[Rfam]
RNA sequence: ACCAUCCAGGACCUGCAGGACAAGCUUCUUGGUGCCACCAUUGAGAACUCCAGGAUUGUCCUGGAGUUCGACAAC
Numbered sequence: 001a002c003c004a005u006c007c008a009g010g011a012c013c014u015g016c017a018g019g020a021c022a023a024g025c026u027u028c029u030u031g032g033u034g035c036c037a038c039c040a041u042u043g044a045g046a047a048c049u050c051c052a053g054g055a056u057u058g059u060c061c062u063g064g065a066g067u068u069c070g071a072c073a074a075c
Base pairs, nucleotide, nucleotide: 010069011068013066014065016063017062018061019060020059021058022057023056027055028054029053030052031051032050034048
Dot-bracket structure: .........((.((.((((((((...((((((.(.............).)))))))))))))).)).))......